The family of this 155-nucleotide RNA from Comamonas testosteroni is "ZMP/ZTP riboswitch aptamer (pfl RNA motif)". Lineage of the source: Bacteria > Pseudomonadati > Pseudomonadota > Comamonadaceae > Comamonas testosteroni.
[Rfam]
RNA sequence: GCGGGUGUACGCAACUGGCGAUAGGCGCAGAGUUUUCUGCCGCUGACGUGGAAACCGGCAGACUGCAAGGUCUGUGAACCACCGGGGAGCGUACCGCCCAGAGCCGCAGCGACUGCAGCCUGCAAGCGUUUCAGCCGUUCGCCUGGGCAGCCCUU
Numbered sequence: 001g002c003g004g005g006u007g008u009a010c011g012c013a014a015c016u017g018g019c020g021a022u023a024g025g026c027g028c029a030g031a032g033u034u035u036u037c038u039g040c041c042g043c044u045g046a047c048g049u050g051g052a053a054a055c056c057g058g059c060a061g062a063c064u065g066c067a068a069g070g071u072c073u074g075u076g077a078a079c080c081a082c083c084g085g086g087g088a089g090c091g092u093a094c095c096g097c098c099c100a101g102a103g104c105c106g107c108a109g110c111g112a113c114u115g116c117a118g119c120c121u122g123c124a125a126g127c128g129u130u131u132c133a134g135c136c137g138u139u140c141g142c143c144u145g146g147g148c149a150g151c152c153c154u155u
Base pairs, nucleotide, nucleotide: 003098004097007094008093009092010091011090012089015086016085017143018142019141020140021139048082049081050080051079132150134148135147136146